[Rfam]
RNA sequence: ACACAUGUAUUCGUCUCAAUCCACAUGUGUUGAAGUGGAUUCGAGUGUAAUUAAAUUAAGUUCUAUUCUAAUCUACUCCAACAUAUGUGGAUUGAAGUGGAUACAUAU
Numbered sequence: 001a002c003a004c005a006u007g008u009a010u011u012c013g014u015c016u017c018a019a020u021c022c023a024c025a026u027g028u029g030u031u032g033a034a035g036u037g038g039a040u041u042c043g044a045g046u047g048u049a050a051u052u053a054a055a056u057u058a059a060g061u062u063c064u065a066u067u068c069u070a071a072u073c074u075a076c077u078c079c080a081a082c083a084u085a086u087g088u089g090g091a092u093u094g095a096a097g098u099g100g101a102u103a104c105a106u107a108u
Base pairs, nucleotide, nucleotide: 005106006105007104008103009102010101011100012099013098014097016095017094018093019092020091021090022089023088024087025086026085027084028083029082030081031080032079035076036075037074038073039072040071041070043068045066046065047064